The record is a 127-nucleotide RNA from Actinomyces sp. HMSC065F12, which matches "FMN riboswitch aptamer (RFN element)" in Rfam. The organism belongs to Actinomyces, within Bacteria. The family's consensus secondary structure is taken from published work. Its family is annotated with FMN binding in the Gene Ontology. The RFN element is a highly conserved domain that is found frequently in the 5'-untranslated regions of prokaryotic mRNAs that encode for flavin mononucleotide (FMN) biosynthesis and transport proteins.
RNA sequence: CACAUGCUCCGGGGUCGGUGUAAGUCCGAACCGGCGGUGAGAGUCCGCGACCCGCGCGUUCAUACGCGUGGCUGAACCGGUGAAACUCCGGUACCGACGGUGAAAGUCCGGAUGGGAGGAGCACAGG
Numbered sequence: 001c002a003c004a005u006g007c008u009c010c011g012g013g014g015u016c017g018g019u020g021u022a023a024g025u026c027c028g029a030a031c032c033g034g035c036g037g038u039g040a041g042a043g044u045c046c047g048c049g050a051c052c053c054g055c056g057c058g059u060u061c062a063u064a065c066g067c068g069u070g071g072c073u074g075a076a077c078c079g080g081u082g083a084a085a086c087u088c089c090g091g092u093a094c095c096g097a098c099g100g101u102g103a104a105a106g107u108c109c110g111g112a113u114g115g116g117a118g119g120a121g122c123a124c125a126g127g
Base pairs, nucleotide, nucleotide: 005123006122007121008120009119010118016028017027018026030107031106032096033095034048035047036046037045043094044093052071053070076092077091078090079089080088098110099109100108